[Rfam]
The family of this 170-nucleotide RNA from Providencia heimbachae is "Group II catalytic intron D1-D4-3". NCBI's taxonomy places the organism under Bacteria, Pseudomonadati, Gammaproteobacteria, Providencia, Providencia heimbachae. Pairs were carried over by alignment from the consensus structure.
RNA sequence: UUCAUCGCGAGGUGAAAUCUGAAGGAAGCUGAAAGCAAAAUGCCGGUCUGACGAACAGGAAGCGGUUUAGGCGGUGCAGCGGGGUAAGGCGGCCAAUAUCGUCAACGCCCAAUACUUAUACGGAACGCUGUGACGUAGAGCCGACAGACAUAGGCAGGAAGGUCGCGCGA
Number, nucleotide and partner (000 for none) at each position: 001u016002u015003c014004a013005u012006c011007g000008c000009g000010a000011g006012g005013u004014g003015a002016a001017a000018u000019c000020u000021g000022a000023a000024g000025g000026a000027a000028g000029c169030u000031g000032a000033a000034a000035g163036c162037a000038a000039a000040a000041u156042g155043c154044c153045g000046g149047u148048c147049u146050g145051a000052c000053g000054a000055a000056c000057a000058g000059g000060a000061a000062g000063c143064g142065g141066u140067u000068u000069a000070g000071g136072c135073g134074g000075u132076g131077c130078a129079g128080c127081g126082g110083g109084g108085u107086a000087a000088g103089g102090c101091g100092g000093c000094c000095a000096a000097u000098a000099u000100c091101g090102u089103c088104a000105a000106c000107g085108c084109c083110c082111a000112a000113u000114a000115c000116u000117u000118a000119u000120a000121c000122g000123g000124a000125a000126c081127g080128c079129u078130g077131u076132g075133a000134c073135g072136u071137a000138g000139a000140g066141c065142c064143g063144a000145c050146a049147g048148a047149c046150a000151u000152a000153g044154g043155c042156a041157g000158g000159a000160a000161g000162g036163u035164c000165g000166c000167g000168c000169g029170a000